[Rfam]
RNA sequence: GUUGGUUGAAAAUCACCUGCGGCUUUGGCCGUGGCCGCAGGUGAGACUCGGCGCCCAGAGCCACCGGGGUCUCAGCUCACCGCCCUCUGCUCCGUGUGGGGAGGUGAAACCCAGGCCCCGACACGU
Numbered sequence: 001g002u003u004g005g006u007u008g009a010a011a012a013u014c015a016c017c018u019g020c021g022g023c024u025u026u027g028g029c030c031g032u033g034g035c036c037g038c039a040g041g042u043g044a045g046a047c048u049c050g051g052c053g054c055c056c057a058g059a060g061c062c063a064c065c066g067g068g069g070u071c072u073c074a075g076c077u078c079a080c081c082g083c084c085c086u087c088u089g090c091u092c093c094g095u096g097u098g099g100g101g102a103g104g105u106g107a108a109a110c111c112c113a114g115g116c117c118c119c120g121a122c123a124c125g126u
Stems, first nucleotide, its partner, number of pairs: 005052005013044004021036004066119001068117005077107005085098001087096001

Rfam assigns this 126-nucleotide RNA from Monodon monoceros to the family "Small nucleolar RNA ACA64". On this family, see Schattner et al., RNA 2006: "A computational screen for mammalian pseudouridylation guide H/ACA RNAs". Its family is annotated with nucleolus and RNA processing in the Gene Ontology. Rfam 15.1 lists 9,537 matches to the family in 620 species.